The record is a 420-nucleotide sequence from Colwellia ponticola, which matches "Bacterial RNase P class A" in Rfam. The organism belongs to Colwellia, within Bacteria.
RNA sequence: CGAGUUGACCAGACAAUCGCUGGCUAGUUUACGUAAGUAUUUCUAGCGGGAGGAAAGUCCGGGCUCCAAUGAGCAGGGUGCCAGGUAACACCUGGGCGGCGUGAGCCGACGACAAGUGCAGCAGAGAGAAGACCGCCGAUGGUUAUCUUUCGAGAUUUCACAGGUAAGGCUGAAAGGGUGCGGUAAGAGCGCACCGGAUUGCUGGUAACAGUAAUUGCAGGGUAAACUCCACCUGGAGCAAGACCAAAUAGGGUUUCAUGAUUAUUGUGACGUAAGUUUCAAUAAUAUAAGCGUGGCUCGCGUGGAAACCGGGUAGGUUGCUUGAGCCUUAGAGCGAUUUAAGGCCUAGACGAAUGAUUGUCCCUCACUUACUUUUAGUAAUUGAGCUACAAAACCCGGCUUAUAGUGUCAACUCACCUA
Numbered sequence: 001c002g003a004g005u006u007g008a009c010c011a012g013a014c015a016a017u018c019g020c021u022g023g024c025u026a027g028u029u030u031a032c033g034u035a036a037g038u039a040u041u042u043c044u045a046g047c048g049g050g051a052g053g054a055a056a057g058u059c060c061g062g063g064c065u066c067c068a069a070u071g072a073g074c075a076g077g078g079u080g081c082c083a084g085g086u087a088a089c090a091c092c093u094g095g096g097c098g099g100c101g102u103g104a105g106c107c108g109a110c111g112a113c114a115a116g117u118g119c120a121g122c123a124g125a126g127a128g129a130a131g132a133c134c135g136c137c138g139a140u141g142g143u144u145a146u147c148u149u150u151c152g153a154g155a156u157u158u159c160a161c162a163g164g165u166a167a168g169g170c171u172g173a174a175a176g177g178g179u180g181c182g183g184u185a186a187g188a189g190c191g192c193a194c195c196g197g198a199u200u201g202c203u204g205g206u207a208a209c210a211g212u213a214a215u216u217g218c219a220g221g222g223u224a225a226a227c228u229c230c231a232c233c234u235g236g237a238g239c240a241a242g243a244c245c246a247a248a249u250a251g252g253g254u255u256u257c258a259u260g261a262u263u264a265u266u267g268u269g270a271c272g273u274a275a276g277u278u279u280c281a282a283u284a285a286u287a288u289a290a291g292c293g294u295g296g297c298u299c300g301c302g303u304g305g306a307a308a309c310c311g312g313g314u315a316g317g318u319u320g321c322u323u324g325a326g327c328c329u330u331a332g333a334g335c336g337a338u339u340u341a342a343g344g345c346c347u348a349g350a351c352g353a354a355u356g357a358u359u360g361u362c363c364c365u366c367a368c369u370u371a372c373u374u375u376u377a378g379u380a381a382u383u384g385a386g387c388u389a390c391a392a393a394a395c396c397c398g399g400c401u402u403a404u405a406g407u408g409u410c411a412a413c414u415c416a417c418c419u420a
Stems, first nucleotide, its partner, number of pairs: 002415008010406001011404001012362007020050002023047005055402003059399005064238004071299004076234005081095005096110001097108004111229002116227002118223002133169002135165003140160003177195006196218001197216008242319004252310006291303004326345008